This 90-nucleotide sequence from Bucco capensis belongs to the Rfam family "Small nucleolar RNA SNORD35".
Rfam's curators write: U35 is a C/D box snoRNA located in intron 6 of ribosomal protein L13A and intron 3 of ribosomal protein S11 in humans and at homologous positions in mouse and chicken ribosomal protein genes. U35 guides the methylation of 2'-O-ribose sites in 28S rRNA.
Its Rfam clan is "SNORD35 clan".
The literature on the family includes a 1996 paper in J Mol Biol by Nicoloso et al., "Intron-encoded, antisense small nucleolar RNAs: the characterization of nine novel species points to their direct role as guides for the 2'-O-ribose methylation of rRNAs".
The organism belongs to Bucco, within Eukaryota.
It is annotated as a C/D-box small nucleolar RNA.
The family's consensus secondary structure was predicted with PFOLD.

[Rfam]
RNA sequence: CGGUGAUGAUGUUCUAACUCACGAUGGUCUGCAGAGUGCCCCCUGCUGGGGACUGGUGACAGUGCCUGUGGCAAUGGCUGAACCGUGGGA
Dot-bracket structure: ((((.............................................................................)))).....
Numbered sequence: 001c002g003g004u005g006a007u008g009a010u011g012u013u014c015u016a017a018c019u020c021a022c023g024a025u026g027g028u029c030u031g032c033a034g035a036g037u038g039c040c041c042c043c044u045g046c047u048g049g050g051g052a053c054u055g056g057u058g059a060c061a062g063u064g065c066c067u068g069u070g071g072c073a074a075u076g077g078c079u080g081a082a083c084c085g086u087g088g089g090a
Stems, first nucleotide, its partner, number of pairs: 001085004